The record is a 197-nucleotide sequence from Oryza meyeriana, which matches "MIR159 microRNA precursor family" in Rfam.
Rfam 15.1 lists 3,649 matches to the family in 242 species.
On this family, see Rajagopalan et al., Genes Dev 2006: "A diverse and evolutionarily fluid set of microRNAs in Arabidopsis thaliana".
A search with the family's covariance model found it, with a score of 120 bits.
Its family is annotated with miRNA-mediated post-transcriptional gene silencing and RISC complex in the Gene Ontology.

RNA sequence: GAAGAAGAAGACGAGCUCCCUUCUCUCCAAUUCAGAAGAGGAAGUGGUAGGAUACAGCUGCCGGUUCAUGGAUACCUUUGGAGUACAAGGCAAGUAAUGUAGCCCUGCACUUGCAUGGGUUUGUAUGACCCGGGAGAUGAACCCGACAUUGUCUUCCUCUAUUGAUUGGAGUGAAGGGAGCUCAACACCUCUCUCUC
Number, nucleotide and partner (000 for none) at each position: 001g000002a000003a000004g000005a000006a000007g000008a000009a000010g000011a000012c000013g183014a182015g181016c180017u179018c178019c177020c176021u000022u000023c173024u000025c171026u170027c169028c168029a167030a000031u000032u000033c000034a000035g000036a160037a000038g000039a000040g000041g000042a000043a000044g000045u000046g000047g000048u000049a000050g000051g000052a000053u000054a000055c000056a000057g000058c136059u135060g000061c133062c132063g131064g000065u000066u000067c127068a126069u125070g124071g000072a000073u000074a000075c119076c000077u000078u000079u000080g000081g000082a000083g000084u000085a000086c000087a000088a000089g000090g000091c000092a000093a000094g000095u000096a000097a000098u000099g000100u000101a000102g000103c000104c000105c000106u000107g000108c000109a000110c000111u000112u000113g000114c000115a000116u000117g000118g000119g075120u000121u000122u000123g000124u070125a069126u068127g067128a000129c000130c000131c063132g062133g061134g000135a059136g058137a000138u000139g000140a000141a000142c000143c000144c000145g000146a000147c000148a000149u000150u000151g000152u000153c000154u000155u000156c000157c000158u000159c000160u036161a000162u000163u000164g000165a000166u000167u029168g028169g027170a026171g025172u000173g023174a000175a000176g020177g019178g018179a017180g016181c015182u014183c013184a000185a000186c000187a000188c000189c000190u000191c000192u000193c000194u000195c000196u000197c000